[Rfam]
A member of the RNA family "Aggregatibacter sRNA 20" from Pasteurella felis, 77 nucleotides long. The match comes from Rfam's covariance-model search (79 bits). Rfam's curators write: Validated by RT-PCR and Northern blot.
Nucleotides: 077
Stems, first nucleotide, its partner, number of pairs: 001072004006067003022038003027033002049064006
Number, partner (000 for none) and nucleotide at each position: 001072a002071g003070a004069a005000u006067a007066a008065g009000u010000g011000c012000u013000a014000c015000a016000a017000u018000u019000a020000g021000u022038a023037g024036c025000c026000u027033g028032a029000a030000u031000a032028u033027u034000u035000u036024g037023c038022u039000u040000u041000c042000c043000g044000a045000g046000u047000a048000g049064u050063g051062c052061c053060u054059c055000a056000u057000u058000u059054g060053a061052g062051g063050c064049a065008c066007u067006u068000u069004u070003u071002u072001u073000a074000u075000g076000c077000c
For this family Rfam cites "Small RNA repertoires and their intraspecies variation in Aggregatibacter actinomycetemcomitans" (Oogai et al., DNA Res, 2017).